[Rfam]
RNA: mir-130 microRNA precursor family
RNA sequence: GCCGCGGUACCGGAUUUUUUACAUUGUGGCUAUUGACUUCAUUGGCUGCAAUGUAAAAAAUCCAGUACCGCGGCC
Numbered sequence: 001g002c003c004g005c006g007g008u009a010c011c012g013g014a015u016u017u018u019u020u021a022c023a024u025u026g027u028g029g030c031u032a033u034u035g036a037c038u039u040c041a042u043u044g045g046c047u048g049c050a051a052u053g054u055a056a057a058a059a060a061u062c063c064a065g066u067a068c069c070g071c072g073g074c075c
Base pairs, nucleotide, nucleotide: 001075003073005070006069007068008067009066010065012063013062014061015060016059017058018057019056022053023052024051025050026049027048028047029046030045031044032043